[Rfam]
RNA sequence: CUUCACCGAACCCAGCCACAACGGCCGGCCUUCUGGCCGGUCCCGGCCGUAGGCCGCCAGCAGCGCCUGCGCCUC
Numbered sequence: 001c002u003u004c005a006c007c008g009a010a011c012c013c014a015g016c017c018a019c020a021a022c023g024g025c026c027g028g029c030c031u032u033c034u035g036g037c038c039g040g041u042c043c044c045g046g047c048c049g050u051a052g053g054c055c056g057c058c059a060g061c062a063g064c065g066c067c068u069g070c071g072c073c074u075c
Stems, first nucleotide, its partner, number of pairs: 015025003031071001033069001038065002043060001045058001047056001049054001

A member of the RNA family "ASpks TB sRNA" from Streptomyces sp. MP131-18, 75 nucleotides long.
Pairs were carried over by alignment from the consensus structure, which is taken from published work.
The literature on the family includes a 2009 paper in Mol Microbiol by Arnvig and Young, "Identification of small RNAs in Mycobacterium tuberculosis".
The organism belongs to Streptomyces, within Bacteria.